RNA sequence: AGCCACGCAGUAAGCACAUAGCGAACUAUUCUUUCGCCUUUUACUAAAGAAUACCGUGUGCUUGUUGCUUUGAGUUGGCAUACAGUAAUUUUUGGAAGGGGUCUUCUCUUGUUAGGGUU
Number, nucleotide and partner (000 for none) at each position: 001a000002g000003c078004c077005a076006c000007g000008c067009a066010g065011u064012a063013a062014g061015c060016a059017c058018a057019u000020a000021g000022c000023g000024a000025a000026c000027u053028a052029u051030u050031c049032u048033u047034u046035c000036g000037c000038c000039u000040u000041u000042u000043a000044c000045u000046a034047a033048a032049g031050a030051a029052u028053a027054c000055c000056g000057u018058g017059u016060g015061c014062u013063u012064g011065u010066u009067g008068c000069u000070u000071u000072g000073a000074g000075u000076u005077g004078g003079c000080a000081u000082a000083c000084a000085g000086u000087a000088a000089u000090u000091u000092u000093u000094g000095g000096a000097a000098g000099g000100g119101g118102u117103c116104u115105u114106c000107u000108c000109u000110u000111g000112u000113u000114a105115g104116g103117g102118u101119u100
U5 spliceosomal RNA: a 119-nucleotide RNA from Ricinus communis. Lineage of the source: Eukaryota > Spermatophyta > Mesangiospermae > Gunneridae > Ricinus. U5 RNA is a component of both types of known spliceosome. The match comes from Rfam's covariance-model search (82 bits). Gene Ontology terms of the family: U5 snRNP and spliceosomal tri-snRNP complex assembly.